[Rfam]
RNA sequence: CAUGAGCUGGUGGGGUCCCUCAGCCUGGUCUGUGGGGAUUGGGCUGAAACUGGCUCUCUGACAUCUCCCAAGGGUUCCCAGAUUGCAAGAGUGUGCAGGCCAGGCAGAGGGACCCCACUGGUGCACA
Numbered sequence: 001c002a003u004g005a006g007c008u009g010g011u012g013g014g015g016u017c018c019c020u021c022a023g024c025c026u027g028g029u030c031u032g033u034g035g036g037g038a039u040u041g042g043g044c045u046g047a048a049a050c051u052g053g054c055u056c057u058c059u060g061a062c063a064u065c066u067c068c069c070a071a072g073g074g075u076u077c078c079c080a081g082a083u084u085g086c087a088a089g090a091g092u093g094u095g096c097a098g099g100c101c102a103g104g105c106a107g108a109g110g111g112a113c114c115c116c117a118c119u120g121g122u123g124c125a126c127a
Base pairs, nucleotide, nucleotide: 003125004124006122008120009119010118012116013115014114015113016112017111018110019109020108021107023105024104025103027101028100029099030098031097032096033095034094

mir-9193 microRNA precursor family: a 127-nucleotide RNA from Myotis davidii. NCBI's taxonomy places the organism under Eukaryota, Craniata, Teleostomi, Eutheria, Myotis. The family's consensus secondary structure was predicted with RNAalifold.